RNA sequence: UUAAGGCGAUGAAGUAGGAAGUUGCUGAGCUAUCAGGUAAUUUCUACAGAGAAUUGUCCCCACAAGAUGGGGGCGA
Numbered sequence: 001u002u003a004a005g006g007c008g009a010u011g012a013a014g015u016a017g018g019a020a021g022u023u024g025c026u027g028a029g030c031u032a033u034c035a036g037g038u039a040a041u042u043u044c045u046a047c048a049g050a051g052a053a054u055u056g057u058c059c060c061c062a063c064a065a066g067a068u069g070g071g072g073g074c075g076a
Stems, first nucleotide, its partner, number of pairs: 014047003018044004025036004055075008
Shown here is a 76-nucleotide RNA sequence from Aminipila terrae, a member of the family "S10-Clostridia ribosomal protein leader". Pairs were carried over by alignment from the consensus structure, which is taken from published work. For this family Rfam cites "Discovery of 20 novel ribosomal leader candidates in bacteria and archaea" (Eckert and Weinberg, BMC Microbiol, 2020).